[Rfam]
RNA: SAM (S-adenosyl methionine) riboswitch aptamer
Organism: Kocuria dechangensis
RNA sequence: GAUGACGAGAUCCGACGCGAAGCUCUGGCUGGUCGGACGGCAACCCUCUCCCGUAGCGGGGUGCCCCAGAUGAACAUCGGGCCGCGGGGGCAGUGCCCCGUGGCAAGUACGGCGC
Numbered sequence: 001g002a003u004g005a006c007g008a009g010a011u012c013c014g015a016c017g018c019g020a021a022g023c024u025c026u027g028g029c030u031g032g033u034c035g036g037a038c039g040g041c042a043a044c045c046c047u048c049u050c051c052c053g054u055a056g057c058g059g060g061g062u063g064c065c066c067c068a069g070a071u072g073a074a075c076a077u078c079g080g081g082c083c084g085c086g087g088g089g090g091c092a093g094u095g096c097c098c099c100g101u102g103g104c105a106a107g108u109a110c111g112g113c114g115c
Stems, first nucleotide, its partner, number of pairs: 001078004009038001011037006021030002039065003044061003048056002081104009